Rfam assigns this 79-nucleotide RNA from Eptesicus fuscus to the family "mir-9198 microRNA precursor family". Pairs were carried over by alignment from the consensus structure, which was predicted with RNAalifold.
[Rfam]
Nucleotides: 079
Stems, first nucleotide, its partner, number of pairs: 004074002008070006015063006022056007
Number, partner (000 for none) and nucleotide at each position: 001000g002000c003000c004074a005073c006000c007000a008070c009069u010068c011067a012066c013065a014000c015063c016062c017061a018060c019059u020058g021000c022056u023055g024054g025053u026052g027051c028050c029000c030000a031000g032000c033000g034000c035000u036000g037000g038000u039000c040000c041000a042000a043000a044000u045000c046000a047000c048000u049000u050028g051027g052026c053025a054024c055023u056022g057000u058020c059019a060018g061017u062016g063015g064000a065013u066012g067011u068010g069009a070008g071000c072000a073005g074004u075000g076000g077000c078000u079000g